[Rfam]
RNA sequence: GCAGAUUUGUACGACUGGCGGAAAGUGGGAGUUUACCCACGGGGAGUACAAAAUAAUAAUAGCCGACCGCCUGGGCAGCCUUA
Numbered sequence: 001g002c003a004g005a006u007u008u009g010u011a012c013g014a015c016u017g018g019c020g021g022a023a024a025g026u027g028g029g030a031g032u033u034u035a036c037c038c039a040c041g042g043g044g045a046g047u048a049c050a051a052a053a054u055a056a057u058a059a060u061a062g063c064c065g066a067c068c069g070c071c072u073g074g075g076c077a078g079c080c081u082u083a
Base pairs, nucleotide, nucleotide: 004054006052007051008050009049010048011047012046015043016042017071018070019069020068021067026039027038028037029036060078062076063075064074

Record summary: Shown here is an 83-nucleotide RNA sequence from Anaerocolumna cellulosilytica, a member of the family "ZMP/ZTP riboswitch aptamer (pfl RNA motif)". Lineage of the source: Bacteria > Bacillota > Clostridia > Lachnospiraceae > Anaerocolumna. The match comes from Rfam's covariance-model search (64 bits).